This 73-nucleotide sequence from Alligator mississippiensis belongs to the Rfam family "Mammalian CPEB3 ribozyme".
Nucleotides: 073
Stems, first nucleotide, its partner, number of pairs: 011040003017073007024036003045062005051056001
Number, partner (000 for none) and nucleotide at each position: 001000c002000u003000a004000c005000c006000a007000u008000a009000a010000c011040g012039g013038c014000c015000a016000c017073a018072g019071c020070a021069g022068a023067a024036g025035u026034g027000c028000u029000c030000a031000g032000g033000u034026u035025g036024c037000a038013g039012c040011c041000c042000u043000a044000u045062c046061a047060g048059a049058u050000c051056c052000u053000a054000a055000a056051g057000a058049a059048u060047c061046u062045g063000c064000a065000a066000a067023u068022u069021c070020u071019g072018c073017u
The family's consensus secondary structure is taken from published work. The source organism's lineage runs through Eukaryota, Gnathostomata, Tetrapoda, Amniota and Alligator. The match comes from Rfam's covariance-model search (47 bits).